[Rfam]
RNA sequence: AUGUUAUCAAGAAAGGUGGAGGGAAUAGACCCGGUGAAGCCUUAGCAACCCUUAAUUAUAAGAAGGUGCUAAAUUCUACUUUCAAGGCAAUUCAUUUAUUGCGCUUGAUGGAUAGAUAACCC
Number, nucleotide and partner (000 for none) at each position: 001a000002u000003g120004u119005u118006a117007u116008c115009a000010a000011g000012a000013a043014a042015g041016g040017u039018g000019g000020a000021g032022g031023g030024a000025a000026u078027a077028g076029a075030c023031c022032c021033g000034g000035u000036g000037a000038a000039g017040c016041c015042u014043u013044a070045g069046c068047a067048a000049c066050c065051c062052u061053u060054a059055a000056u000057u000058a000059u054060a053061a052062g051063a000064a000065g050066g049067u047068g046069c045070u044071a000072a000073a000074u114075u029076c028077u027078a026079c111080u110081u000082u108083c107084a106085a105086g104087g000088c000089a000090a000091u000092u000093c000094a000095u000096u000097u000098a000099u000100u000101g000102c000103g000104c086105u085106u084107g083108a082109u000110g080111g079112a000113u000114a074115g008116a007117u006118a005119a004120c003121c000122c000